This 113-nucleotide RNA sequence from Pisciglobus halotolerans belongs to the Rfam family "23S methyl RNA motif".
It is annotated as a cis-regulatory element.
The match comes from Rfam's covariance-model search (68 bits).
The literature on the family includes a 2007 paper in Nucleic Acids Res by Weinberg et al., "Identification of 22 candidate structured RNAs in bacteria using the CMfinder comparative genomics pipeline".
Rfam links the family to the GO term regulation of gene expression.
Pairs were carried over by alignment from the consensus structure, which is taken from published work.
The organism belongs to Pisciglobus, within Bacteria.

RNA sequence: GGUUCAUUCGUUUUUAUCAGGAAUCCAUCAGAUGUUGAUAAAAGUUAAUGAAUUUAAAGGCUUCACUAACGUAUCGCUUCGCAGUGUCUACCACCGAAGCGAUACGUUUCUUU
Numbered sequence: 001g002g003u004u005c006a007u008u009c010g011u012u013u014u015u016a017u018c019a020g021g022a023a024u025c026c027a028u029c030a031g032a033u034g035u036u037g038a039u040a041a042a043a044g045u046u047a048a049u050g051a052a053u054u055u056a057a058a059g060g061c062u063u064c065a066c067u068a069a070c071g072u073a074u075c076g077c078u079u080c081g082c083a084g085u086g087u088c089u090a091c092c093a094c095c096g097a098a099g100c101g102a103u104a105c106g107u108u109u110c111u112u113u
Stems, first nucleotide, its partner, number of pairs: 002053007010045010068108014084094003